[Rfam]
A member of the RNA family "ASpks TB sRNA" from Saccharothrix australiensis, 69 nucleotides long. It scores 64 bits against the family's covariance model. Pairs were carried over by alignment from the consensus structure, which is taken from published work. On this family, see Arnvig and Young, Mol Microbiol 2009: "Identification of small RNAs in Mycobacterium tuberculosis".

RNA sequence: CUUCACCGAGCCCAGCCACAGCGGCUGGUCCCGCUCCUGCCCGUACACCGCCAUGAUCGCCUGCGCCUC
Numbered sequence: 001c002u003u004c005a006c007c008g009a010g011c012c013c014a015g016c017c018a019c020a021g022c023g024g025c026u027g028g029u030c031c032c033g034c035u036c037c038u039g040c041c042c043g044u045a046c047a048c049c050g051c052c053a054u055g056a057u058c059g060c061c062u063g064c065g066c067c068u069c
Stems, first nucleotide, its partner, number of pairs: 014026004031065001032059002038053002041050001043048001